[Rfam]
Rfam assigns this 100-nucleotide sequence from Monosiga brevicollis to the family "Small nucleolar RNA R38". Rfam links the family to the GO terms nucleolus and RNA processing. The family has 19 seed sequences and 2,295 matches in Rfam 15.1. It is annotated as a C/D-box small nucleolar RNA. Rfam's curators write: snoR38 is a C/D box small nucleolar RNA conserved across yeast, human, Arabidopsis and rice. The organism belongs to Monosiga brevicollis, within Eukaryota. A reference for the family is Bachellerie et al. (1995), "Antisense snoRNAs: a family of nucleolar RNAs with long complementarities to rRNA", Trends Biochem Sci.
RNA sequence: UUUGACUCUUGAUGACACUUUUCUUAUACAGUUAUCCCUGGCUGAUGGUGGGGACGCCAUGCCCUGCCGCCUGUGAUGAUUCCUUUUGUCUGAAGUCAAA
Numbered sequence: 001u002u003u004g005a006c007u008c009u010u011g012a013u014g015a016c017a018c019u020u021u022u023c024u025u026a027u028a029c030a031g032u033u034a035u036c037c038c039u040g041g042c043u044g045a046u047g048g049u050g051g052g053g054a055c056g057c058c059a060u061g062c063c064c065u066g067c068c069g070c071c072u073g074u075g076a077u078g079a080u081u082c083c084u085u086u087u088g089u090c091u092g093a094a095g096u097c098a099a100a
Stems, first nucleotide, its partner, number of pairs: 001100007